[Rfam]
RNA: Small nucleolar RNA SNORD11B
Organism: Atractosteus spatula
RNA sequence: GAACAGCGGUGAUGAUGAUGACUUAUUGUCACUUCCCUGAAUCACAAAUGUGGGUUUUAAGUCACUACCUCAUCUGAGCUGUUC
Numbered sequence: 001g002a003a004c005a006g007c008g009g010u011g012a013u014g015a016u017g018a019u020g021a022c023u024u025a026u027u028g029u030c031a032c033u034u035c036c037c038u039g040a041a042u043c044a045c046a047a048a049u050g051u052g053g054g055u056u057u058u059a060a061g062u063c064a065c066u067a068c069c070u071c072a073u074c075u076g077a078g079c080u081g082u083u084c
Stems, first nucleotide, its partner, number of pairs: 002083006